The family of this 164-nucleotide RNA sequence from Pan troglodytes is "U1 spliceosomal RNA". The match comes from Rfam's covariance-model search (159 bits). By type it is a spliceosomal small nuclear RNA. Lineage of the source: Eukaryota > Chordata > Gnathostomata > Primates > Pan.
RNA sequence: AUACUUACCUGGCAGUGGAGAUACCAUGAUCACGAAGGUGGUUUUCCCAGGGCGAGGCUUAUCCAUCGCACUCCGGAUAUGCUGACCCCUGCGAUUUUCCCAAAUGUGGGAAACUCGACUGCAUAAUUUGUGGUAGUGGGGGACUGUGCUUGCGCUUUCCCUUG
Numbered sequence: 001a002u003a004c005u006u007a008c009c010u011g012g013c014a015g016u017g018g019a020g021a022u023a024c025c026a027u028g029a030u031c032a033c034g035a036a037g038g039u040g041g042u043u044u045u046c047c048c049a050g051g052g053c054g055a056g057g058c059u060u061a062u063c064c065a066u067c068g069c070a071c072u073c074c075g076g077a078u079a080u081g082c083u084g085a086c087c088c089c090u091g092c093g094a095u096u097u098u099c100c101c102a103a104a105u106g107u108g109g110g111a112a113a114c115u116c117g118a119c120u121g122c123a124u125a126a127u128u129u130g131u132g133g134u135a136g137u138g139g140g141g142g143a144c145u146g147u148g149c150u151u152g153c154g155c156u157u158u159c160c161c162u163u164g
Stems, first nucleotide, its partner, number of pairs: 012122004017047005023042005049090004054086001056083003060079005092117003095113003099109002138163006146155003